ASpks TB sRNA: a 75-nucleotide sequence from Streptomyces silvensis. Pairs were carried over by alignment from the consensus structure, which is taken from published work.
RNA sequence: CUUCAGGGCGCCCAGCCACAGCGGGCGGUCCGCGGGCCUGCCCUGGCCGUAGGUGGCGAGGAGCGCCUGCGCCUC
Numbered sequence: 001c002u003u004c005a006g007g008g009c010g011c012c013c014a015g016c017c018a019c020a021g022c023g024g025g026c027g028g029u030c031c032g033c034g035g036g037c038c039u040g041c042c043c044u045g046g047c048c049g050u051a052g053g054u055g056g057c058g059a060g061g062a063g064c065g066c067c068u069g070c071g072c073c074u075c
Stems, first nucleotide, its partner, number of pairs: 016024002031071003038065001043060002047056003

Taxonomically the source falls in Streptomyces (Bacteria, Actinomycetes, Kitasatosporales, Streptomycetaceae).
The literature on the family includes a 2009 paper in Mol Microbiol by Arnvig and Young, "Identification of small RNAs in Mycobacterium tuberculosis".